[Rfam]
RNA sequence: UCUACAGUGAUUGAUUCAGUGACUUUCGUUCUUCUGAUUCUACUGAAGCCAUCCUUCCUGUUCUGAGAAGA
Dot-bracket structure: (((.(.............................................................).)))